[Rfam]
RNA sequence: GCCACGCCUAGCCCGAGGCUGAUCCCCGAGGGCGAAAACCGGGAAGCCCCCCAACCCGGCGGCGCUGGCACUUUUUUGGGGG
Numbered sequence: 001g002c003c004a005c006g007c008c009u010a011g012c013c014c015g016a017g018g019c020u021g022a023u024c025c026c027c028g029a030g031g032g033c034g035a036a037a038a039c040c041g042g043g044a045a046g047c048c049c050c051c052c053a054a055c056c057c058g059g060c061g062g063c064g065c066u067g068g069c070a071c072u073u074u075u076u077u078g079g080g081g082g
Stems, first nucleotide, its partner, number of pairs: 001069004005064004011033004039059005048082006
RNA: int-alpA RNA
Organism: Serpentinimonas raichei